[Rfam]
RNA sequence: UUUUCCAUGACUCCUUAUCACUUCUCCUCCCAGCUUCGAAUGAAAAGCAACUUGCUGGACGGAGAACUGAUAAGGGCUGGUGGAAAA
Numbered sequence: 001u002u003u004u005c006c007a008u009g010a011c012u013c014c015u016u017a018u019c020a021c022u023u024c025u026c027c028u029c030c031c032a033g034c035u036u037c038g039a040a041u042g043a044a045a046a047g048c049a050a051c052u053u054g055c056u057g058g059a060c061g062g063a064g065a066a067c068u069g070a071u072a073a074g075g076g077c078u079g080g081u082g083g084a085a086a087a
Stems, first nucleotide, its partner, number of pairs: 012076009022066006030058002
A member of the RNA family "mir-184 microRNA precursor family" from Apostichopus japonicus, 87 nucleotides long. The source organism's lineage runs through Eukaryota, Opisthokonta, Metazoa, Bilateria and Apostichopus.